[Rfam]
Notes:
Singlet oxygen resistance RNA X: an 84-nucleotide RNA sequence from Maritimibacter harenae. NCBI's taxonomy places the organism under Bacteria, Pseudomonadota, Rhodobacterales, Roseobacteraceae, Maritimibacter. On this family, see Berghoff et al., Mol Microbiol 2009: "Photooxidative stress-induced and abundant small RNAs in Rhodobacter sphaeroides". About the family: SorX (RSs2461)like SorY is a singlet oxygen induced sRNA that counteracts oxidative stress by targeting mRNA for a transporter in Rhodobacter. It also has an impact on resistance against organic hydroperoxides. The family has 8 seed sequences and 528 matches in Rfam 15.1.

RNA sequence: CCGCCUCGAAGCCGGUCGACACACAGUCUGAUCGUCUUCACCUCCCUGUUGGACUUAGGCCGGGCCUCGUGCCCGGCUUUUUUU
Numbered sequence: 001c002c003g004c005c006u007c008g009a010a011g012c013c014g015g016u017c018g019a020c021a022c023a024c025a026g027u028c029u030g031a032u033c034g035u036c037u038u039c040a041c042c043u044c045c046c047u048g049u050u051g052g053a054c055u056u057a058g059g060c061c062g063g064g065c066c067u068c069g070u071g072c073c074c075g076g077c078u079u080u081u082u083u084u
Stems, first nucleotide, its partner, number of pairs: 008039004013034006058078008